[Rfam]
RNA sequence: UCCAGCAGUUGUCAGCUAUCCAGACUAGUGUAAUGUUUGUGGUUGUGUUACACUGUUGGAAGAGCAAGCACUGUCUUUACUGAGGCUUGGCUCCAAGCACUGUUUUGGGGUUGUGGUCAAGAACCUUUGGACAGUGUUUUGCACCUCUGAGAGUGGAAUGGCCCCUCCUGUGGAGUUGGUCCUAGUCUGGGUGCAAACAAU
Numbered sequence: 001u002c003c004a005g006c007a008g009u010u011g012u013c014a015g016c017u018a019u020c021c022a023g024a025c026u027a028g029u030g031u032a033a034u035g036u037u038u039g040u041g042g043u044u045g046u047g048u049u050a051c052a053c054u055g056u057u058g059g060a061a062g063a064g065c066a067a068g069c070a071c072u073g074u075c076u077u078u079a080c081u082g083a084g085g086c087u088u089g090g091c092u093c094c095a096a097g098c099a100c101u102g103u104u105u106u107g108g109g110g111u112u113g114u115g116g117u118c119a120a121g122a123a124c125c126u127u128u129g130g131a132c133a134g135u136g137u138u139u140u141g142c143a144c145c146u147c148u149g150a151g152a153g154u155g156g157a158a159u160g161g162c163c164c165c166u167c168c169u170g171u172g173g174a175g176u177u178g179g180u181c182c183u184a185g186u187c188u189g190g191g192u193g194c195a196a197a198c199a200a201u
Stems, first nucleotide, its partner, number of pairs: 001060009011051002015046002018043003021039005068137009082127004087120006094113003098110001100108002139196008155182003159178004164173002
Small nucleolar RNA SNORA74: a 201-nucleotide RNA sequence from Castor canadensis.
The base pairs follow the family's consensus structure, which was predicted with PFOLD.
For this family Rfam cites "Characterization of the intron-encoded U19 RNA, a new mammalian small nucleolar RNA that is not associated with fibrillarin" (Kiss et al., Mol Cell Biol, 1996).
Gene Ontology terms of the family: nucleolus and RNA processing.
From the family's description: U19 belongs to the H/ACA class of snoRNAs. snoRNAs bind a number of proteins (including dyskerin, Gar1p and Nop10p in the case of the H/ACA class) to form snoRNP complexes. This class are thought to guide the sites of modification of uridines to pseudouridines by forming direct base pairing interactions with substrate RNAs. Targets may include ribosomal and spliceosomal RNAs but the exact functions of many snoRNAs, including U19, are not confirmed. Co-precipitation of U19 snoRNA with RNase MRP RNA suggests that U19 may be involved in pre-rRNA processing.
The family is grouped with related families in Rfam's "SNORA74 clan".